[Rfam]
RNA sequence: AUAACAGAAAAGGAGGUCCUUCAGUCCAAUAGGAGGGUGAAGAGUGGUAAGAGCUGCCACUUCAUGAAUUCAGUUACACUUAGUAUGGUGCAUCUUUCAUCUAAGUGUUAGCCAUUUGCAUGGUAUGGGAGCAACUCCUUCCGCUCUCUUAUCUCACCAAUUGGACUGAAGGGACCUUCUAACUCAUUUCUU
Dot-bracket structure: ............((((((((.(((((((......(..................((.(((...((((....................................................))))...))).)).......................)......)))))))..))))))))..............